Rfam assigns this 122-nucleotide RNA sequence from Serratia proteamaculans to the family "Enterobacteria greA leader". Rfam's curators put it in the seed alignment. The source organism's lineage runs through Bacteria, Gammaproteobacteria, Yersiniaceae, Serratia and Serratia proteamaculans.

RNA sequence: GUCAUACUACGGUGCAUUCAGGGAAAAAGUAAACGAUGACCCUCAAGGAACUCUAAGCUAAAAUGCGUAUCAAAAUGCAAAAUCGAUCCUGACUUGGGCAACUGUUCCGAGUCAGGCUUCUU
Numbered sequence: 001g002u003c004a005u006a007c008u009a010c011g012g013u014g015c016a017u018u019c020a021g022g023g024a025a026a027a028a029g030u031a032a033a034c035g036a037u038g039a040c041c042c043u044c045a046a047g048g049a050a051c052u053c054u055a056a057g058c059u060a061a062a063a064u065g066c067g068u069a070u071c072a073a074a075a076u077g078c079a080a081a082a083u084c085g086a087u088c089c090u091g092a093c094u095u096g097g098g099c100a101a102c103u104g105u106u107c108c109g110a111g112u113c114a115g116g117c118u119u120c121u122u
Stems, first nucleotide, its partner, number of pairs: 001040005010035002014030002041048002057071001059069002089115010